[Rfam]
RNA: mir-7385 microRNA precursor family
Organism: Monodelphis domestica
RNA sequence: AGGUCUGAUAGUCUACCUUUCUGUGAUGUAAAACUCAGAAAGUAGUUUAUCAGAUCUGG
Numbered sequence: 001a002g003g004u005c006u007g008a009u010a011g012u013c014u015a016c017c018u019u020u021c022u023g024u025g026a027u028g029u030a031a032a033a034c035u036c037a038g039a040a041a042g043u044a045g046u047u048u049a050u051c052a053g054a055u056c057u058g059g
Stems, first nucleotide, its partner, number of pairs: 001057011013045004018040003